[Rfam]
RNA sequence: UAUAGAACUUGAGAUAUGGGUCAAUCACUGAACAUUGUCUGGGUUGCAAGACAGAUUUGGACCUAAAAGCAGCCUUUUUAAAUCUUGGACUCCUCAUGAAAGUUUUAGGCCUAUGUCUUAGCUUUCCAUC
Numbered sequence: 001u002a003u004a005g006a007a008c009u010u011g012a013g014a015u016a017u018g019g020g021u022c023a024a025u026c027a028c029u030g031a032a033c034a035u036u037g038u039c040u041g042g043g044u045u046g047c048a049a050g051a052c053a054g055a056u057u058u059g060g061a062c063c064u065a066a067a068a069g070c071a072g073c074c075u076u077u078u079u080a081a082a083u084c085u086u087g088g089a090c091u092c093c094u095c096a097u098g099a100a101a102g103u104u105u106u107a108g109g110c111c112u113a114u115g116u117c118u119u120a121g122c123u124u125u126c127c128a129u130c
Stems, first nucleotide, its partner, number of pairs: 002129002005126003008121002011119010021108001023106002027103003036096002041093003045089001048086004054079002059074002062072001

Description:
This 130-nucleotide RNA from Populus tomentosa belongs to the Rfam family "MIR2912 microRNA precursor family". It scores 97 bits against the family's covariance model.